RNA sequence: AAUGCAAGCUGUUCUACCGCUGUUCCUGUUUACAGGAAAAGAGGAAAGUCCGGGCAACACAGCGCAUCCCGCUUCCUAACGGGAAGAGGUUCAGGAAUGAAUGCCUGAAUUAUGGAAAGUGCCGCAGAAAAUACACCGCCAAUGGCUCAGGCACAGGUAAGGUUGAAAACGUGAGGUAAGAGCUCACGAUUGUUCCGGGUAACCGGAGCACUGGUAAACCCCGGGAGUUGAAAGACCAAAUAGGCUAACGCAUGUAGGGCUGCUCGUCCGAUGUUAGUGGGUAGGUCGUUAGAGAUAAAUGGUAACAUUUAUAGUAGAUUAAUGGUAGAAUCCCGUUUACGGGCACAGAACCCGGCUUACAGGCUUGCAUUUUUA
Numbered sequence: 001a002a003u004g005c006a007a008g009c010u011g012u013u014c015u016a017c018c019g020c021u022g023u024u025c026c027u028g029u030u031u032a033c034a035g036g037a038a039a040a041g042a043g044g045a046a047a048g049u050c051c052g053g054g055c056a057a058c059a060c061a062g063c064g065c066a067u068c069c070c071g072c073u074u075c076c077u078a079a080c081g082g083g084a085a086g087a088g089g090u091u092c093a094g095g096a097a098u099g100a101a102u103g104c105c106u107g108a109a110u111u112a113u114g115g116a117a118a119g120u121g122c123c124g125c126a127g128a129a130a131a132u133a134c135a136c137c138g139c140c141a142a143u144g145g146c147u148c149a150g151g152c153a154c155a156g157g158u159a160a161g162g163u164u165g166a167a168a169a170c171g172u173g174a175g176g177u178a179a180g181a182g183c184u185c186a187c188g189a190u191u192g193u194u195c196c197g198g199g200u201a202a203c204c205g206g207a208g209c210a211c212u213g214g215u216a217a218a219c220c221c222c223g224g225g226a227g228u229u230g231a232a233a234g235a236c237c238a239a240a241u242a243g244g245c246u247a248a249c250g251c252a253u254g255u256a257g258g259g260c261u262g263c264u265c266g267u268c269c270g271a272u273g274u275u276a277g278u279g280g281g282u283a284g285g286u287c288g289u290u291a292g293a294g295a296u297a298a299a300u301g302g303u304a305a306c307a308u309u310u311a312u313a314g315u316a317g318a319u320u321a322a323u324g325g326u327a328g329a330a331u332c333c334c335g336u337u338u339a340c341g342g343g344c345a346c347a348g349a350a351c352c353c354g355g356c357u358u359a360c361a362g363g364c365u366u367g368c369a370u371u372u373u374u375a
Stems, first nucleotide, its partner, number of pairs: 001371010011360001012330007020041002023038006046358003050355005055230004062265001064263002067226005072086005087113001088111008114221002119219002121215003136162002138158003143153002146150001170188006191210008234287004244278006257269004295312007

A member of the RNA family "Bacterial RNase P class A" from Pedobacter africanus, 375 nucleotides long. Lineage of the source: Bacteria > Pseudomonadati > Sphingobacteriia > Sphingobacteriaceae > Pedobacter. Rfam classes the family as a ribozyme.